[Rfam]
Rfam assigns this 193-nucleotide sequence from Enterococcus rivorum to the family "6S / SsrS RNA". The organism belongs to Enterococcus, within Bacteria.
RNA sequence: GUAAAUCUGUAAUGUGCGAGUUGUCCUUUCACUGUGUUGACCGAACAUUUUUAUCAAUAUAUUGGGAUCCUUCUUGUAUCGAAGUUGGUAACAUGCCUUUUCAUUUGGUAGUUCAAUACUUAGAUCGUGGAACCCACCUGCUAGAUUGCGGGUUCAAUACUAUAGGACGAGUAACGGCAUCAACGGAUUUUAC
Numbered sequence: 001g002u003a004a005a006u007c008u009g010u011a012a013u014g015u016g017c018g019a020g021u022u023g024u025c026c027u028u029u030c031a032c033u034g035u036g037u038u039g040a041c042c043g044a045a046c047a048u049u050u051u052u053a054u055c056a057a058u059a060u061a062u063u064g065g066g067a068u069c070c071u072u073c074u075u076g077u078a079u080c081g082a083a084g085u086u087g088g089u090a091a092c093a094u095g096c097c098u099u100u101u102c103a104u105u106u107g108g109u110a111g112u113u114c115a116a117u118a119c120u121u122a123g124a125u126c127g128u129g130g131a132a133c134c135c136a137c138c139u140g141c142u143a144g145a146u147u148g149c150g151g152g153u154u155c156a157a158u159a160c161u162a163u164a165g166g167a168c169g170a171g172u173a174a175c176g177g178c179a180u181c182a183a184c185g186g187a188u189u190u191u192a193c
Stems, first nucleotide, its partner, number of pairs: 003190008012180004017176002034160007041152002064135003068131003072127001079124002082121004091112002096108002